[Rfam]
RNA: Small nucleolar RNA SNORA4
RNA sequence: GUACUAAAAGCUAAUUUGAGGGAAAGCUUUUAAUAACAUUUAUCAACUUGGGCUAUUGGCAGAGUGAUUAAGACUACAUUCCACAAUGGUCUAUACCACUUAGUAUGGGUCAUUACUAUCUUGUGGCCUAAACU
Numbered sequence: 001g002u003a004c005u006a007a008a009a010g011c012u013a014a015u016u017u018g019a020g021g022g023a024a025a026g027c028u029u030u031u032a033a034u035a036a037c038a039u040u041u042a043u044c045a046a047c048u049u050g051g052g053c054u055a056u057u058g059g060c061a062g063a064g065u066g067a068u069u070a071a072g073a074c075u076a077c078a079u080u081c082c083a084c085a086a087u088g089g090u091c092u093a094u095a096c097c098a099c100u101u102a103g104u105a106u107g108g109g110u111c112a113u114u115a116c117u118a119u120c121u122u123g124u125g126g127c128c129u130a131a132a133c134u
Stems, first nucleotide, its partner, number of pairs: 004059004012055002015052003018047001021044002024041001026037001028035001071129002074126005085114012